glmS glucosamine-6-phosphate activated ribozyme aptamer: a 181-nucleotide RNA sequence from Ruminiclostridium cellulolyticum.
This entry contains a glucosamine-6-phosphate activated ribozyme that is found in the mRNA for GlmS. GlmS is an enzyme that uses fructose-6-phosphate and glutamine to generate glucosamine-6-phosphate.
RNA sequence: UGAAUUAAAAAGGCGCCAGGACAGAUUUUUAUAAGUCUGUUGACGAGGAGAAGGAAGCGAUGCACUAAUUAACGUGUGUCGUAUCGAAAGAUUCGGCGGAUACCUUCCGGCUGUUACGGUCGAGAGAGACAAAACAAAACUUGCAGGCGACUGCAAGAACAAAAUGGUCUCAUGUAGCUAA
Numbered sequence: 001u002g003a004a005u006u007a008a009a010a011a012g013g014c015g016c017c018a019g020g021a022c023a024g025a026u027u028u029u030u031a032u033a034a035g036u037c038u039g040u041u042g043a044c045g046a047g048g049a050g051a052a053g054g055a056a057g058c059g060a061u062g063c064a065c066u067a068a069u070u071a072a073c074g075u076g077u078g079u080c081g082u083a084u085c086g087a088a089a090g091a092u093u094c095g096g097c098g099g100a101u102a103c104c105u106u107c108c109g110g111c112u113g114u115u116a117c118g119g120u121c122g123a124g125a126g127a128g129a130c131a132a133a134a135c136a137a138a139a140c141u142u143g144c145a146g147g148c149g150a151c152u153g154c155a156a157g158a159a160c161a162a163a164a165u166g167g168u169c170u171c172a173u174g175u176a177g178c179u180a181a
Base pairs, nucleotide, nucleotide: 020041021040022039023038024037025036026035027034029033050107051106052105053104054103058095059094060093108122109121110120111119112118113117126171127170128169129168130167132165140157141156142155143154144153145152146151
Pairs were carried over by alignment from the consensus structure, which is taken from published work.
Rfam links the family to the GO terms regulation of gene expression and catalytic activity.